The record is a 162-nucleotide RNA from Clostridiales bacterium CHKCI001, which matches "Clostridiales-1 RNA" in Rfam. It scores 68 bits against the family's covariance model. The family's consensus secondary structure is taken from published work. Lineage of the source: Bacteria > Bacillati > Bacillota > Clostridia > Eubacteriales.

RNA sequence: UUAUAAAAGUAUCAUCAAUGUCCAAGCAGGCAGGGGAUUUAUCCUCUGUGCUAACUGGACAUUCAACGAUCUGACCUGUAUGAGCAAGUAAGACAUUCGCCUGGAUUGCGAAUACAGGCAGCGAUGUCGAGAGUGCACAGCACGAAGACAUGACUUUUAUAU
Numbered sequence: 001u002u003a004u005a006a007a008a009g010u011a012u013c014a015u016c017a018a019u020g021u022c023c024a025a026g027c028a029g030g031c032a033g034g035g036g037a038u039u040u041a042u043c044c045u046c047u048g049u050g051c052u053a054a055c056u057g058g059a060c061a062u063u064c065a066a067c068g069a070u071c072u073g074a075c076c077u078g079u080a081u082g083a084g085c086a087a088g089u090a091a092g093a094c095a096u097u098c099g100c101c102u103g104g105a106u107u108g109c110g111a112a113u114a115c116a117g118g119c120a121g122c123g124a125u126g127u128c129g130a131g132a133g134u135g136c137a138c139a140g141c142a143c144g145a146a147g148a149c150a151u152g153a154c155u156u157u158u159a160u161a162u
Base pairs, nucleotide, nucleotide: 002161003160004159005158006157007156011070012069013068017063018062019061020060021059022058023057024056028052029051033046034045035044036043037042075118076117077116078115079114080113081112084109085108086107087106091102092101094099124151125150126149127148128147133143134142135141136140